[Rfam]
RNA sequence: GGUCAUGAGUAUCAGCGUGAAGCCCCGGCUUGCUGAUCGGCAACCCUCCAUCCGCGGUGGGGUGCUCCGGGUGAUGACCGGGUCGAGGAACGCACAUCGCAUUCCUUGGCAAGCGCGGGUC
Numbered sequence: 001g002g003u004c005a006u007g008a009g010u011a012u013c014a015g016c017g018u019g020a021a022g023c024c025c026c027g028g029c030u031u032g033c034u035g036a037u038c039g040g041c042a043a044c045c046c047u048c049c050a051u052c053c054g055c056g057g058u059g060g061g062g063u064g065c066u067c068c069g070g071g072u073g074a075u076g077a078c079c080g081g082g083u084c085g086a087g088g089a090a091c092g093c094a095c096a097u098c099g100c101a102u103u104c105c106u107u108g109g110c111a112a113g114c115g116c117g118g119g120u121c
Base pairs, nucleotide, nucleotide: 001079002078003077004076009038011037012036013035014034015033016032021030022029039066040065041064044062045061046060048057049056082110083109084108085107086106087105088104089103090102

The record is a 121-nucleotide RNA from Gordonia rhizosphera, which matches "SAM (S-adenosyl methionine) riboswitch aptamer" in Rfam. The match comes from Rfam's covariance-model search (109 bits). The family is grouped with related families in Rfam's "SAM clan".